[Rfam]
U5 spliceosomal RNA: a 119-nucleotide RNA from Hibiscus trionum. Rfam links the family to the GO terms U5 snRNP and spliceosomal tri-snRNP complex assembly. NCBI's taxonomy places the organism under Eukaryota, Tracheophyta, Mesangiospermae, rosids, Hibiscus. A search with the family's covariance model found it, with a score of 87 bits.

RNA sequence: AGUCGUGCGGUGAGCACAAAGCGAACUAUUCUUUCGCCUUUUACUAAAGAAUACCGUGUGCUCGCCGCUCAAAGCGGCAUACGCCUAUUUUUGGAGGCUAACUCCUUCAUUGGGGGUGG
Numbered sequence: 001a002g003u004c005g006u007g008c009g010g011u012g013a014g015c016a017c018a019a020a021g022c023g024a025a026c027u028a029u030u031c032u033u034u035c036g037c038c039u040u041u042u043a044c045u046a047a048a049g050a051a052u053a054c055c056g057u058g059u060g061c062u063c064g065c066c067g068c069u070c071a072a073a074g075c076g077g078c079a080u081a082c083g084c085c086u087a088u089u090u091u092u093g094g095a096g097g098c099u100a101a102c103u104c105c106u107u108c109a110u111u112g113g114g115g116g117u118g119g
Base pairs, nucleotide, nucleotide: 003077004076005075006074008067009066010065011064012063013062014061015060016059017058018057027053028052029051030050031049032048033047034046101117102116103115104114105113